[Rfam]
RNA: FMN riboswitch aptamer (RFN element)
Organism: Roseburia sp. CAG:380
RNA sequence: AAUAAACUUCGGGGCAGCGUGUAAUUCGCGACCGACGGUAUUUGUGCAUGGGAUGUUUUCCUGUGACACAUCAGCCCGUGAGUCACAGUGUGACAGGAUUUGGUGAGAUUCCAAGGCCGACAGUAUAGUCUGGAUGUGAGAAGUGCAGA
Numbered sequence: 001a002a003u004a005a006a007c008u009u010c011g012g013g014g015c016a017g018c019g020u021g022u023a024a025u026u027c028g029c030g031a032c033c034g035a036c037g038g039u040a041u042u043u044g045u046g047c048a049u050g051g052g053a054u055g056u057u058u059u060c061c062u063g064u065g066a067c068a069c070a071u072c073a074g075c076c077c078g079u080g081a082g083u084c085a086c087a088g089u090g091u092g093a094c095a096g097g098a099u100u101u102g103g104u105g106a107g108a109u110u111c112c113a114a115g116g117c118c119g120a121c122a123g124u125a126u127a128g129u130c131u132g133g134a135u136g137u138g139a140g141a142a143g144u145g146c147a148g149a
Base pairs, nucleotide, nucleotide: 003147006144007143008142009141010140017029018028019027031129032128033119034118035079036078037077038076074117075116082094083093084092099115100114101113102112103111121132122131123130